[Rfam]
Background: Rfam assigns this 136-nucleotide sequence from Chloroceryle aenea to the family "Small nucleolar RNA SNORA15". It scores 68 bits against the family's covariance model. Rfam 15.1 lists 974 matches to the family in 624 species. The literature on the family includes a 2001 paper in EMBO J by Huttenhofer et al., "RNomics: an experimental approach that identifies 201 candidates for novel, small, non-messenger RNAs in mouse". ACA15 is a member of the H/ACA class of snoRNA that guide the sites of modification of uridines to pseudouridines. Pairs were carried over by alignment from the consensus structure, which was predicted with RNAfold.

RNA sequence: GCAUGGACGAAUUCUGCACUAGCUUUCCUCCAUAGCUAAUGCAGUCAGACACUAUGCCAGAAUAAAUUCCUUUUUCACACUGGUUGGUAUGCCUUUUAUAUGAGAAUGGGCAUGCCUUUGGAAGUGGAAUACAGAG
Dot-bracket structure: ((((((.......(((((.....................))))).......)))))).............(.((((......(..(((((((((.............)))))))))..).)))).)..........

Its family is annotated with RNA processing and nucleolus in the Gene Ontology.